RNA sequence: AAAAGGUAUAUGAAUUAUCAAUGGUGUUACUCCUAUACUUCAUUUUUUAUACUAAAAUACUCCCUACCUUUCUUUUAUUGGAAAGUAAGAGAGACAAAAAUGUGUUUAUUUCUCUUUUUUCAAUCAAAGGGAGGUGUGGAGUAGAGGUGUAAAAACUAAAUUAU
Numbered sequence: 001a002a003a004a005g006g007u008a009u010a011u012g013a014a015u016u017a018u019c020a021a022u023g024g025u026g027u028u029a030c031u032c033c034u035a036u037a038c039u040u041c042a043u044u045u046u047u048u049a050u051a052c053u054a055a056a057a058u059a060c061u062c063c064c065u066a067c068c069u070u071u072c073u074u075u076u077a078u079u080g081g082a083a084a085g086u087a088a089g090a091g092a093g094a095c096a097a098a099a100a101u102g103u104g105u106u107u108a109u110u111u112c113u114c115u116u117u118u119u120u121c122a123a124u125c126a127a128a129g130g131g132a133g134g135u136g137u138g139g140a141g142u143a144g145a146g147g148u149g150u151a152a153a154a155a156c157u158a159a160a161u162u163a164u
Stems, first nucleotide, its partner, number of pairs: 058143006065136011077124003081121005087116007
RNA: MIR2119 microRNA precursor family
Organism: Trifolium subterraneum